[Rfam]
Source information
Rfam assigns this 51-nucleotide RNA sequence from Oncorhynchus kisutch to the family "U7 small nuclear RNA". A reference for the family is Spycher et al. (1994), "3' end processing of mouse histone pre-mRNA: evidence for additional base-pairing between U7 snRNA and pre-mRNA", Nucleic Acids Res. About the family: Animal histone pre-mRNAs are spliced by a different mechanism than nuclear pre-mRNAs and self-splicing introns. This processing involves the U7 snRNP, which contains only one RNA species: U7. The 5' end of U7 RNA is thought to base-pair to a conserved spacer element downstream of the cleavage site in histone pre-mRNA. This family contains a number of annotated U7 pseudogenes.
RNA sequence: AGGUGUUUUUUAAAUAUUUGUCCAGUAGGUUUCCUCAAGGAGAAAGCCCAC
Numbered sequence: 001a002g003g004u005g006u007u008u009u010u011u012a013a014a015u016a017u018u019u020g021u022c023c024a025g026u027a028g029g030u031u032u033c034c035u036c037a038a039g040g041a042g043a044a045a046g047c048c049c050a051c
Base pairs, nucleotide, nucleotide: 028048029047030046031045032044034042035041036040